[Rfam]
A member of the RNA family "S4-Flavobacteria ribosomal protein leader", 40 nucleotides long. Rfam's curators put it in the seed alignment.
RNA sequence: GAAAACCAAAGGAUAAGCAUAAGACCUUAAUUUGGUAUUC
Numbered sequence: 001g002a003a004a005a006c007c008a009a010a011g012g013a014u015a016a017g018c019a020u021a022a023g024a025c026c027u028u029a030a031u032u033u034g035g036u037a038u039u040c
Stems, first nucleotide, its partner, number of pairs: 001040003005036002008033001009028004
Dot-bracket structure: (((.((.(((((............))))....).)).)))
The family is grouped with related families in Rfam's "Ribosomal Protein S4 Leader clan". Rfam classes the family as a cis-regulatory leader.